Source information:
The family of this 46-nucleotide sequence from Neorhodopirellula pilleata is "Acido-Lenti-1 RNA". The organism belongs to Neorhodopirellula, within Bacteria.

[Rfam]
RNA sequence: CCCCACGCUCACGCGUGGGGCUAACUGCUGCCGUCGCUCCGCGACU
Numbered sequence: 001c002c003c004c005a006c007g008c009u010c011a012c013g014c015g016u017g018g019g020g021c022u023a024a025c026u027g028c029u030g031c032c033g034u035c036g037c038u039c040c041g042c043g044a045c046u
Stems, first nucleotide, its partner, number of pairs: 001020008033045005